[Rfam]
RNA sequence: CCUUUUUACGCAUAAUAAACCACCUCUAUACAUUUUACUGUUCCUAUUCUGUUAGAAACAGGUAUUGAAAAACACAUCGUAAGGUUUAUUAGUUCCUAUUAUGCGUGCGGUAUAAUGAAAAAUACUGUUAGUUAGAAGGUAAUAAAAAAAACCGUUAUCUAACAGUUCUUUUUCUAUGCUUUAAAUUAACAUUAGAACCCCAUUUGAUUGAUGACGGUUUGAAAAAGCCGUCUUCUUUCUUUUACGACA
Numbered sequence: 001c002c003u004u005u006u007u008a009c010g011c012a013u014a015a016u017a018a019a020c021c022a023c024c025u026c027u028a029u030a031c032a033u034u035u036u037a038c039u040g041u042u043c044c045u046a047u048u049c050u051g052u053u054a055g056a057a058a059c060a061g062g063u064a065u066u067g068a069a070a071a072a073c074a075c076a077u078c079g080u081a082a083g084g085u086u087u088a089u090u091a092g093u094u095c096c097u098a099u100u101a102u103g104c105g106u107g108c109g110g111u112a113u114a115a116u117g118a119a120a121a122a123u124a125c126u127g128u129u130a131g132u133u134a135g136a137a138g139g140u141a142a143u144a145a146a147a148a149a150a151a152c153c154g155u156u157a158u159c160u161a162a163c164a165g166u167u168c169u170u171u172u173u174c175u176a177u178g179c180u181u182u183a184a185a186u187u188a189a190c191a192u193u194a195g196a197a198c199c200c201c202a203u204u205u206g207a208u209u210g211a212u213g214a215c216g217g218u219u220u221g222a223a224a225a226a227g228c229c230g231u232c233u234u235c236u237u238u239c240u241u242u243u244a245c246g247a248c249a
Stems, first nucleotide, its partner, number of pairs: 001117001003115002007107002011103001013101005028077002033072004038067001040065002043062003047058002050055001079090001082087001127167001129165001131163005137155001138153002210235002213232001215230006
The family of this 249-nucleotide RNA from Enterococcus aquimarinus is "Cis-regulator of HTH transcription factor". For this family Rfam cites "Genome-wide identification of regulatory RNAs in the human pathogen Clostridium difficile" (Soutourina et al., PLoS Genet, 2013). From the family's description: This element was identified by RNA deep sequencing of Clostridioides difficile 630 where it is located immediately upstream of an uncharacterized HTH-type Transcriptional regulator. Homologues are found widely across firmicutes, consistently located 5' of transcriptional regulators of similar size and sequence, which strongly supports a cis-regulatory function. RNA is referred to as CD630_SQ2397 in ref. Note: the sequence is highly conserved and shows no evidence for covariation as per R-scape analysis. The proposed secondary structure is therefore purely hypothetical. Rfam's curators put it in the seed alignment. By type it is a cis-regulatory element.